The family of this 110-nucleotide sequence from Fusibacter sp. 3D3 is "SAM riboswitch aptamer (S box leader)". Pairs were carried over by alignment from the consensus structure, which is taken from published work. NCBI's taxonomy places the organism under Bacteria, Bacillati, Eubacteriales, Fusibacteraceae, Fusibacter. From the family's description: The SAM riboswitch is found upstream of a number of genes which code for proteins involved in methionine or cysteine biosynthesis in Gram-positive bacteria.
RNA sequence: ACCUUAUCCAGAGUGGCUGAGAGAACAGGCUCAAUGACGCCCAGCAACCUGCAUCCCAUUCGAUGCGUGGUGCCAAUUCCUGCAUUUCUUUACGAAGUGAGAGAUAAGAA
Number, nucleotide and partner (000 for none) at each position: 001a000002c000003c108004u107005u106006a105007u104008c103009c000010a000011g000012a000013g042014u000015g041016g040017c039018u000019g000020a000021g032022a031023g030024a000025a000026c082027a081028g080029g079030c023031u022032c021033a000034a000035u000036g000037a000038c000039g017040c016041c015042c013043a000044g073045c072046a071047a000048c070049c069050u067051g066052c065053a064054u000055c000056c000057c000058a000059u000060u000061c000062g000063a000064u053065g052066c051067g050068u000069g049070g048071u046072g045073c044074c000075a000076a000077u000078u102079c029080c028081u027082g026083c099084a098085u097086u096087u095088c094089u000090u000091u000092a000093c000094g088095a087096a086097g085098u084099g083100a000101g000102a078103g008104a007105u006106a005107a004108g003109a000110a000